Shown here is a 114-nucleotide sequence from Nelumbo nucifera, a member of the family "MIR394 microRNA precursor family". A search with the family's covariance model found it, with a score of 91 bits. The organism belongs to Nelumbo, within Eukaryota.
RNA sequence: CUUACAGAGUUUAUUGGCAUUCUGUCCACCUCCACCAAAGGAAAUCCAUCUCUCUCUCUCGUUUUCUCUUCUUUUUUAAUGGAGGUGGGCAUCCUGCCAACAAAGCUCUGUUGG
Numbered sequence: 001c002u003u004a005c006a007g008a009g010u011u012u013a014u015u016g017g018c019a020u021u022c023u024g025u026c027c028a029c030c031u032c033c034a035c036c037a038a039a040g041g042a043a044a045u046c047c048a049u050c051u052c053u054c055u056c057u058c059u060c061g062u063u064u065u066c067u068c069u070u071c072u073u074u075u076u077u078a079a080u081g082g083a084g085g086u087g088g089g090c091a092u093c094c095u096g097c098c099a100a101c102a103a104a105g106c107u108c109u110g111u112u113g114g
Stems, first nucleotide, its partner, number of pairs: 011104001014100006023091011